Rfam assigns this 113-nucleotide sequence from Eucalyptus grandis to the family "Small nucleolar RNA Z279/snoR105/snoR108". About the family: This family includes the plant snoRNAs known as Z279, snoR105 and snoR108. The family's consensus secondary structure was predicted with PFOLD. On this family, see Marker et al., Curr Biol 2002: "Experimental RNomics: identification of 140 candidates for small non-messenger RNAs in the plant Arabidopsis thaliana".

[Rfam]
RNA sequence: GGGGGAUGAUGAGUGGUCAAUGCUCGCGAUGAUAAAAGACGCGAGAGGGGUGUACCAACCCACGCCUGGUUACGACAACCUGGGCACUCCAAUCAUCUGUACCUUCUGAUCCC
Numbered sequence: 001g002g003g004g005g006a007u008g009a010u011g012a013g014u015g016g017u018c019a020a021u022g023c024u025c026g027c028g029a030u031g032a033u034a035a036a037a038g039a040c041g042c043g044a045g046a047g048g049g050g051u052g053u054a055c056c057a058a059c060c061c062a063c064g065c066c067u068g069g070u071u072a073c074g075a076c077a078a079c080c081u082g083g084g085c086a087c088u089c090c091a092a093u094c095a096u097c098u099g100u101a102c103c104u105u106c107u108g109a110u111c112c113c
Base pairs, nucleotide, nucleotide: 001113002112003111004110015103016102017101023045024044025043026042027041047090048089049088050087051086052085053084055082068080069079070078